[Rfam]
RNA sequence: CGACGGGCCACGCGGCCCCAACGCCGCGCGUGCUCUCUGUGAGGAGAGAUACA
Number, nucleotide and partner (000 for none) at each position: 001c000002g000003a000004c000005g000006g000007g000008c000009c000010a000011c028012g027013c026014g025015g024016c023017c000018c000019c000020a000021a000022c000023g016024c015025c014026g013027c012028g011029c000030g000031u000032g000033c048034u047035c046036u045037c044038u043039g000040u000041g000042a000043g038044g037045a036046g035047a034048g033049a000050u000051a000052c000053a000
RNA: serC leader